[Rfam]
Source information: MIR2275 microRNA precursor family: a 104-nucleotide sequence from Oryza brachyantha.
RNA sequence: AAGCUAAAUGUGAGAGUCGGAUGGGACCAAAUCUUCAGCUCCAGCUCCAAAUCACUGGAGUAGAGCACAAGACUUGGUUUCCUCCAAUAUCUCAUCUUCAACUG
Dot-bracket structure: ....(.((..((((.((.(((.((((((((.((((.................................)))).)))))))).))).))..))))..)).)....
Numbered sequence: 001a002a003g004c005u006a007a008a009u010g011u012g013a014g015a016g017u018c019g020g021a022u023g024g025g026a027c028c029a030a031a032u033c034u035u036c037a038g039c040u041c042c043a044g045c046u047c048c049a050a051a052u053c054a055c056u057g058g059a060g061u062a063g064a065g066c067a068c069a070a071g072a073c074u075u076g077g078u079u080u081c082c083u084c085c086a087a088u089a090u091c092u093c094a095u096c097u098u099c100a101a102c103u104g
Stems, first nucleotide, its partner, number of pairs: 005100001007098002011094004016088002019085003023081008032072004

Rfam 15.1 lists 785 matches to the family in 111 species. Lineage of the source: Eukaryota > Embryophyta > Spermatophyta > Magnoliopsida > Oryza. Rfam links the family to the GO terms RISC complex and miRNA-mediated post-transcriptional gene silencing. It scores 69 bits against the family's covariance model.